Glycine riboswitch aptamer: an 84-nucleotide sequence. About the family: This family represents the bacterial glycine riboswitch. Rfam links the family to the GO term glycine biosynthetic process. The pairing is the family consensus, mapped onto this sequence.
RNA sequence: GUGCUGUGUGUUGGAAAAAUUUUCCUAAUGAAUGAAACACUGAAGAAAAAAAAGUUUUCAGGUAGAAGGAAUAGCGCACGCAAA
Numbered sequence: 001g002u003g004c005u006g007u008g009u010g011u012u013g014g015a016a017a018a019a020u021u022u023u024c025c026u027a028a029u030g031a032a033u034g035a036a037a038c039a040c041u042g043a044a045g046a047a048a049a050a051a052a053a054g055u056u057u058u059c060a061g062g063u064a065g066a067a068g069g070a071a072u073a074g075c076g077c078a079c080g081c082a083a084a
Stems, first nucleotide, its partner, number of pairs: 006079008020037004039063003042059002046057003